Shown here is an 88-nucleotide RNA sequence from Colocasia esculenta, a member of the family "Small nucleolar RNA snoR27". Its Rfam clan is "snR68 clan". Pairs were carried over by alignment from the consensus structure, which was predicted with WAR. The family's RNA type in Rfam is C/D-box small nucleolar RNA. The source organism's lineage runs through Eukaryota, Tracheophyta, Magnoliopsida, Mesangiospermae and Colocasia. Gene Ontology terms of the family: RNA processing and nucleolus.

[Rfam]
RNA sequence: AAUGGAUCAAUGAUGAAGUAAUUUCUCUGCGUUAUCUUUCGCGAACUCUCCAGAGAUCUGACGACAACAACUAUUACUGAGAUCCUUC
Numbered sequence: 001a002a003u004g005g006a007u008c009a010a011u012g013a014u015g016a017a018g019u020a021a022u023u024u025c026u027c028u029g030c031g032u033u034a035u036c037u038u039u040c041g042c043g044a045a046c047u048c049u050c051c052a053g054a055g056a057u058c059u060g061a062c063g064a065c066a067a068c069a070a071c072u073a074u075u076a077c078u079g080a081g082a083u084c085c086u087u088c
Stems, first nucleotide, its partner, number of pairs: 002087001004085004